[Rfam]
Shown here is a 134-nucleotide RNA sequence from Ramlibacter rhizophilus, a member of the family "ZMP/ZTP riboswitch aptamer (pfl RNA motif)". The family has 185 seed sequences and 3,295 matches in Rfam 15.1. Gene Ontology terms of the family: regulation of purine nucleotide biosynthetic process and one-carbon metabolic process. The source organism's lineage runs through Bacteria, Pseudomonadati, Pseudomonadota, Betaproteobacteria and Ramlibacter.
RNA sequence: CGCGCGGUACGCGACUGGCGAUAGGCGCGGCGCCGGCGGCACACCCCGCGCCGGCGGCCACGGCCGACGUGGGUCACCACGGGGAAGCGUGCCACCGCACUGGCGGUGUUCAGCCGUUCGCCUGGGCAGCCCUU
Number, nucleotide and partner (000 for none) at each position: 001c000002g000003c000004g095005c000006g093007g092008u091009a090010c089011g088012c087013g000014a000015c084016u083017g122018g121019c120020g119021a118022u000023a000024g000025g000026c000027g000028c000029g000030g000031c000032g000033c000034c000035g000036g000037c000038g000039g000040c000041a000042c000043a000044c000045c000046c000047c000048g000049c000050g000051c000052c000053g000054g000055c000056g000057g000058c000059c000060a000061c000062g000063g000064c000065c000066g000067a000068c000069g080070u079071g078072g077073g000074u000075c000076a000077c072078c071079a070080c069081g000082g000083g016084g015085a000086a000087g012088c011089g010090u009091g008092c007093c006094a000095c004096c000097g000098c000099a000100c000101u000102g000103g000104c000105g000106g000107u000108g000109u000110u000111c129112a000113g127114c126115c125116g000117u000118u021119c020120g019121c018122c017123u000124g000125g115126g114127c113128a000129g111130c000131c000132c000133u000134u000
Annotation: The base pairs follow the family's consensus structure, which is taken from published work.